[Rfam]
RNA sequence: GUGCAAUGAUGGAGAACCAAAGUGUUUCCUGAUUACCAAUGAAGCCAUCUAUCUCUUGGCUGUGUCUGAGCAC
Numbered sequence: 001g002u003g004c005a006a007u008g009a010u011g012g013a014g015a016a017c018c019a020a021a022g023u024g025u026u027u028c029c030u031g032a033u034u035a036c037c038a039a040u041g042a043a044g045c046c047a048u049c050u051a052u053c054u055c056u057u058g059g060c061u062g063u064g065u066c067u068g069a070g071c072a073c
Base pairs, nucleotide, nucleotide: 001073002072003071004070
Dot-bracket structure: ((((.................................................................))))